[Rfam]
RNA sequence: UCAGUGGGGCUGCCAUCUGUCUGCCUGUCUGUGCCUGCUGUACAGGAUCAGAAGGUCUGCACAGCAAGUGUAGACAGGCAGACACACCACAACAGUCUC
Number, nucleotide and partner (000 for none) at each position: 001u000002c000003a000004g000005u000006g000007g000008g000009g000010c000011u000012g000013c000014c000015a000016u000017c000018u084019g083020u000021c000022u080023g079024c078025c077026u076027g075028u074029c073030u072031g000032u000033g000034c068035c000036u066037g065038c064039u063040g062041u061042a000043c059044a058045g057046g000047a000048u000049c000050a000051g000052a000053a000054g000055g000056u000057c045058u044059g043060c000061a041062c040063a039064g038065c037066a036067a000068g034069u000070g000071u000072a030073g029074a028075c027076a026077g025078g024079c023080a022081g000082a000083c019084a018085c000086a000087c000088c000089a000090c000091a000092a000093c000094a000095g000096u000097c000098u000099c000
RNA: mir-214 microRNA precursor family